[Rfam]
RNA sequence: GUUACCGCCCCUAUACCGGUAAGGAAAGGGGGUGUUCCUCAGAUGGAAAUGAUACUUUCUUUUAUUGUCACAGUUGUGGCCGGUGUGGUUUGCCACCUCAUCUGCAAAUGGUUAGACAGUGACAAGUAGUCGGUAACUAGCCUAUGGUUUAAGCCACCAUACAAAAUGGAAUAGAAAAGCCCAAGGAUUCGCGGUCCCUGGGCUUUUCGUUUUGUGUU
Numbered sequence: 001g002u003u004a005c006c007g008c009c010c011c012u013a014u015a016c017c018g019g020u021a022a023g024g025a026a027a028g029g030g031g032g033u034g035u036u037c038c039u040c041a042g043a044u045g046g047a048a049a050u051g052a053u054a055c056u057u058u059c060u061u062u063u064a065u066u067g068u069c070a071c072a073g074u075u076g077u078g079g080c081c082g083g084u085g086u087g088g089u090u091u092g093c094c095a096c097c098u099c100a101u102c103u104g105c106a107a108a109u110g111g112u113u114a115g116a117c118a119g120u121g122a123c124a125a126g127u128a129g130u131c132g133g134u135a136a137c138u139a140g141c142c143u144a145u146g147g148u149u150u151a152a153g154c155c156a157c158c159a160u161a162c163a164a165a166a167u168g169g170a171a172u173a174g175a176a177a178a179g180c181c182c183a184a185g186g187a188u189u190c191g192c193g194g195u196c197c198c199u200g201g202g203c204u205u206u207u208c209g210u211u212u213u214g215u216g217u218u
Base pairs, nucleotide, nucleotide: 005029006028010024011023012022031158032157033051034050035049036048037046038045069153072150073149075147077104078103079102082099083098085096086095110142111141112140113139114138115137118134123132161215162214163213165212166211169208170207171206177205178204179203180202181201182200183199185197186196187195188194
RNA: Streptococcus sRNA SpF66
Organism: Lachnospiraceae bacterium AM48-27BH